[Rfam]
RNA sequence: GCACGGCCUCCGCCGAGUCCGGUACGCCUUCCCGUGGCAGCCGGAGCCGGGGACCCACCGACCUCUGGGGUGAAUCGACCCGACCGCCGUACGCGGCGAGGGUCGUAGGGCAAACCUUCCGAAGCUUGCGCCCGAACCCGACAGCUAACUCGGUAGGCGGAUUACGGAAGGAGU
Numbered sequence: 001g002c003a004c005g006g007c008c009u010c011c012g013c014c015g016a017g018u019c020c021g022g023u024a025c026g027c028c029u030u031c032c033c034g035u036g037g038c039a040g041c042c043g044g045a046g047c048c049g050g051g052g053a054c055c056c057a058c059c060g061a062c063c064u065c066u067g068g069g070g071u072g073a074a075u076c077g078a079c080c081c082g083a084c085c086g087c088c089g090u091a092c093g094c095g096g097c098g099a100g101g102g103u104c105g106u107a108g109g110g111c112a113a114a115c116c117u118u119c120c121g122a123a124g125c126u127u128g129c130g131c132c133c134g135a136a137c138c139c140g141a142c143a144g145c146u147a148a149c150u151c152g153g154u155a156g157g158c159g160g161a162u163u164a165c166g167g168a169a170g171g172a173g174u
Stems, first nucleotide, its partner, number of pairs: 011159004018045006046154006056067002068139003076105006108133004